[Rfam]
RNA sequence: CUUCCUCAGCCUUACUCCAGGGGCUUUUGCUUUUUGUAGAGUGCCCUGGCAUUGCCUGAGGAUAAAUUGAAAGUAUGCUCACUUCCCUCCUCAGUACCCUCUGGGGCCUACAAUUUGAGCAAACAUU
Numbered sequence: 001c002u003u004c005c006u007c008a009g010c011c012u013u014a015c016u017c018c019a020g021g022g023g024c025u026u027u028u029g030c031u032u033u034u035u036g037u038a039g040a041g042u043g044c045c046c047u048g049g050c051a052u053u054g055c056c057u058g059a060g061g062a063u064a065a066a067u068u069g070a071a072a073g074u075a076u077g078c079u080c081a082c083u084u085c086c087c088u089c090c091u092c093a094g095u096a097c098c099c100u101c102u103g104g105g106g107c108c109u110a111c112a113a114u115u116u117g118a119g120c121a122a123a124c125a126u127u
Base pairs, nucleotide, nucleotide: 003062004061005060006059007058008057009056011054017049018048019047020046021045022044023042024041025040026039027038076121077120078119080117081116089106090105091104092103093102094101096100
The record is a 127-nucleotide RNA sequence from Probosciger aterrimus, which matches "Small nucleolar RNA SNORA49" in Rfam.
The snoRNA ACA49 has no identified RNA target. NB genomic sequence 1-nt different from published.
Pairs were carried over by alignment from the consensus structure, which was predicted with RNAalifold.
By type it is an H/ACA-box small nucleolar RNA.
A search with the family's covariance model found it, with a score of 108 bits.